Notes
The family of this 172-nucleotide RNA sequence from Anhinga anhinga is "Small Cajal body specific RNA 16". Pairs were carried over by alignment from the consensus structure, which was predicted with RNAfold.
[Rfam]
RNA sequence: CAGGGCUGGGGAAGGGCUGCUGGGCGGCGGGGCCCGGCCCCAGCCUCCUCCCAGGCAGCCUUACCCGCGCCCCACAGCAAGCCCCGGCGGCCCCGCUGGGCUGUGCCGUGCGGUAGCAGGUGUGAGCACCCGUGCAGCCUUUGGGUGGUCAUGUAUGAUACUGCACACAGCC
Numbered sequence: 001c002a003g004g005g006c007u008g009g010g011g012a013a014g015g016g017c018u019g020c021u022g023g024g025c026g027g028c029g030g031g032g033c034c035c036g037g038c039c040c041c042a043g044c045c046u047c048c049u050c051c052c053a054g055g056c057a058g059c060c061u062u063a064c065c066c067g068c069g070c071c072c073c074a075c076a077g078c079a080a081g082c083c084c085c086g087g088c089g090g091c092c093c094c095g096c097u098g099g100g101c102u103g104u105g106c107c108g109u110g111c112g113g114u115a116g117c118a119g120g121u122g123u124g125a126g127c128a129c130c131c132g133u134g135c136a137g138c139c140u141u142u143g144g145g146u147g148g149u150c151a152u153g154u155a156u157g158a159u160a161c162u163g164c165a166c167a168c169a170g171c172c
Stems, first nucleotide, its partner, number of pairs: 003072004008066003015060004020054003024051001026045003030041001032039001083100007108166008117157002123151003127147004134141001
For this family Rfam cites "Cajal body-specific small nuclear RNAs: a novel class of 2'-O-methylation and pseudouridylation guide RNAs" (Darzacq et al., EMBO J, 2002). Its family is annotated with RNA processing and nucleolus in the Gene Ontology. Rfam describes the family as follows. scaRNAs are a specific class of small nuclear RNAs which localise to the Cajal bodies and guide the modification of RNA polymerase II transcribed spliceosomal RNAs U1, U2, U4, U5 and U12. ACA47 belongs to the H/ACA box class of guide RNAs as it has the predicted hairpin-hinge-hairpin-tail structure, the conserved H/ACA-box motifs and is found associated with GAR1. ACA47 is predicted to guide the pseudouridylation of residue U5 of the U1 spliceosomal snRNA. By type it is a small Cajal body RNA.